[Rfam]
RNA sequence: GCAUGGGCGAAUUCUGCACUAGCUUCCCUCAGUAGCUACUGCAGUCAGACACUAUGCCAGAAUAAAUUCCCUUUUUCACACUGGUGGGCGUGCUUUUCCUGUGGGAAGGGGCAUGCCUCUGGAAGUGGGAUACAC
Numbered sequence: 001g002c003a004u005g006g007g008c009g010a011a012u013u014c015u016g017c018a019c020u021a022g023c024u025u026c027c028c029u030c031a032g033u034a035g036c037u038a039c040u041g042c043a044g045u046c047a048g049a050c051a052c053u054a055u056g057c058c059a060g061a062a063u064a065a066a067u068u069c070c071c072u073u074u075u076u077c078a079c080a081c082u083g084g085u086g087g088g089c090g091u092g093c094u095u096u097u098c099c100u101g102u103g104g105g106a107a108g109g110g111g112c113a114u115g116c117c118u119c120u121g122g123a124a125g126u127g128g129g130a131u132a133c134a135c
Base pairs, nucleotide, nucleotide: 001057002056003055004054005053006052014044015043016042017041018040070129071128072127073125074124075123076122077121078120086118087117088116089115090114091113092112093111094110095109096108097107
Dot-bracket structure: ((((((.......(((((.....................))))).......))))))............(((((((((.......((((((((((((.........)))))))))))).)))))).)))......
A member of the RNA family "Small nucleolar RNA SNORA15" from Leptosomus discolor, 135 nucleotides long. The match comes from Rfam's covariance-model search (66 bits). The family's RNA type in Rfam is H/ACA-box small nucleolar RNA. On this family, see Huttenhofer et al., EMBO J 2001: "RNomics: an experimental approach that identifies 201 candidates for novel, small, non-messenger RNAs in mouse". ACA15 is a member of the H/ACA class of snoRNA that guide the sites of modification of uridines to pseudouridines. Its family is annotated with RNA processing and nucleolus in the Gene Ontology.